mir-515 microRNA precursor family: an 87-nucleotide sequence from Cebus imitator.
Gene Ontology terms of the family: RISC complex and miRNA-mediated post-transcriptional gene silencing.
Taxonomically the source falls in Cebus (Eukaryota, Opisthokonta, Metazoa, Teleostomi).
[Rfam]
RNA sequence: UCCCAAACUGUGACCCUCCAAAGGGAAGUGCUUUCUGUUGUGUGAGAAAAUACAAAGGCCUUCCCUUUAGAGUGUUACCGUUCGAGA
Number, nucleotide and partner (000 for none) at each position: 001u087002c086003c000004c084005a000006a000007a081008c080009u000010g078011u077012g076013a075014c074015c000016c072017u071018c070019c000020a068021a067022a066023g065024g064025g063026a062027a061028g060029u000030g000031c057032u056033u055034u054035c000036u000037g000038u052039u000040g000041u000042g000043u000044g000045a000046g000047a000048a000049a000050a000051u000052a038053c000054a034055a033056a032057g031058g000059c000060c028061u027062u026063c025064c024065c023066u022067u021068u020069a000070g018071a017072g016073u000074g014075u013076u012077a011078c010079c000080g008081u007082u000083c000084g004085a000086g002087a001